RNA sequence: UGGUGAUGUCUCCUUACCACUAUAAAUGGAGGCACUCGGUCAUGCUGUGGGUGAACAACCUUAGACGCGUUUGUUGUCGAGAGUGUGAUGUGAGGUUGGGUUAGAUGCCCU
Numbered sequence: 001u002g003g004u005g006a007u008g009u010c011u012c013c014u015u016a017c018c019a020c021u022a023u024a025a026a027u028g029g030a031g032g033c034a035c036u037c038g039g040u041c042a043u044g045c046u047g048u049g050g051g052u053g054a055a056c057a058a059c060c061u062u063a064g065a066c067g068c069g070u071u072u073g074u075u076g077u078c079g080a081g082a083g084u085g086u087g088a089u090g091u092g093a094g095g096u097u098g099g100g101u102u103a104g105a106u107g108c109c110c111u
Stems, first nucleotide, its partner, number of pairs: 001019004007034007035094004039089008049061004064078004098110004
Dot-bracket structure: [[[[..(((((((..]]]]........)))))))((((((((((((..((((.....))))..((((.......))))...)))))))).))))...((((.....)))).
RNA: epsC RNA
Organism: Litchfieldia stipae